Rfam assigns this 584-nucleotide part of an RNA from Veillonella sp. oral taxon 780 to the family "Bacterial small subunit ribosomal RNA". The match comes from Rfam's covariance-model search (1582 bits). NCBI's taxonomy places the organism under Bacteria, Bacillati, Bacillota, Veillonellaceae, Veillonella sp. oral taxon 780.
RNA sequence: AUCUUGGAGAGUUUGAUCCUGGCUCAGGACGAACGCUGGCGGCGUGCUUAACACAUGCAAGUCGAACGGACAGACAGAGAGCUUGCUCUCUUGAAGUUAGUGGCGAACGGGUGAGUAACGCGUAAUCAACCUGCCCUUCAGAGGGGGAUAACAACGGGAAACCGUUGCUAAUACCGCGUACGAUUCACAGGCGGCAUCGCUUGUGAAUGAAAGGUGGCCUCUAUAUAUAAGCUAUCGCUGAAGGAGGGGAUUGCGUCUGAUUAGCUAGUUGGAGGGGUAACGGCCCACCAAGGCAAUGAUCAGUAGCCGGUCUGAGAGGAUGAACGGCCACAUUGGGACUGAGACACGGCCCAAACUCCUACGGGAGGCAGCAGUGGGGAAUCUUCCGCAAUGGACGAAAGUCUGACGGAGCAACGCCGCGUGAGUGAUGAAGGUCUUCGGAUUGUAAAGCUCUGUUAAUCGGGACGAAAGAGUUCUGUGUGAAUAAUGCAGAAAAGUGACGGUACCGGAAUAGAAAGCCACGGCUAACUACGUGCCAGCAGCCGCGGUAAUACGUAGGUGGCAAGCGUUGUCCGGAAUUAUUG
Numbered sequence: 001a002u003c004u005u006g007g008a009g010a011g012u013u014u015g016a017u018c019c020u021g022g023c024u025c026a027g028g029a030c031g032a033a034c035g036c037u038g039g040c041g042g043c044g045u046g047c048u049u050a051a052c053a054c055a056u057g058c059a060a061g062u063c064g065a066a067c068g069g070a071c072a073g074a075c076a077g078a079g080a081g082c083u084u085g086c087u088c089u090c091u092u093g094a095a096g097u098u099a100g101u102g103g104c105g106a107a108c109g110g111g112u113g114a115g116u117a118a119c120g121c122g123u124a125a126u127c128a129a130c131c132u133g134c135c136c137u138u139c140a141g142a143g144g145g146g147g148a149u150a151a152c153a154a155c156g157g158g159a160a161a162c163c164g165u166u167g168c169u170a171a172u173a174c175c176g177c178g179u180a181c182g183a184u185u186c187a188c189a190g191g192c193g194g195c196a197u198c199g200c201u202u203g204u205g206a207a208u209g210a211a212a213g214g215u216g217g218c219c220u221c222u223a224u225a226u227a228u229a230a231g232c233u234a235u236c237g238c239u240g241a242a243g244g245a246g247g248g249g250a251u252u253g254c255g256u257c258u259g260a261u262u263a264g265c266u267a268g269u270u271g272g273a274g275g276g277g278u279a280a281c282g283g284c285c286c287a288c289c290a291a292g293g294c295a296a297u298g299a300u301c302a303g304u305a306g307c308c309g310g311u312c313u314g315a316g317a318g319g320a321u322g323a324a325c326g327g328c329c330a331c332a333u334u335g336g337g338a339c340u341g342a343g344a345c346a347c348g349g350c351c352c353a354a355a356c357u358c359c360u361a362c363g364g365g366a367g368g369c370a371g372c373a374g375u376g377g378g379g380a381a382u383c384u385u386c387c388g389c390a391a392u393g394g395a396c397g398a399a400a401g402u403c404u405g406a407c408g409g410a411g412c413a414a415c416g417c418c419g420c421g422u423g424a425g426u427g428a429u430g431a432a433g434g435u436c437u438u439c440g441g442a443u444u445g446u447a448a449a450g451c452u453c454u455g456u457u458a459a460u461c462g463g464g465a466c467g468a469a470a471g472a473g474u475u476c477u478g479u480g481u482g483a484a485u486a487a488u489g490c491a492g493a494a495a496a497g498u499g500a501c502g503g504u505a506c507c508g509g510a511a512u513a514g515a516a517a518g519c520c521a522c523g524g525c526u527a528a529c530u531a532c533g534u535g536c537c538a539g540c541a542g543c544c545g546c547g548g549u550a551a552u553a554c555g556u557a558g559g560u561g562g563c564a565a566g567c568g569u570u571g572u573c574c575g576g577a578a579u580u581a582u583u584g
Stems, first nucleotide, its partner, number of pairs: 009025005027574004032570006039420006045413002047378001052376003056373003061104003066101002070097002076091006111331003120256008130248002135244007143177001145175002152167006183208007191200003213236006257303003264294003269291004274286003306328004310321004333354005356367004384410001386409003392405005423453004433444004457515001460509004467501001474494006518563005529558005539546002